[Rfam]
RNA sequence: GUUCCCCAUUUUUGUAAGUCGCUUUGGAUAAAAGCGUCAGCUAAAUGGCCAAAU
Numbered sequence: 001g002u003u004c005c006c007c008a009u010u011u012u013u014g015u016a017a018g019u020c021g022c023u024u025u026g027g028a029u030a031a032a033a034g035c036g037u038c039a040g041c042u043a044a045a046u047g048g049c050c051a052a053a054u
Stems, first nucleotide, its partner, number of pairs: 013043001014041002020036006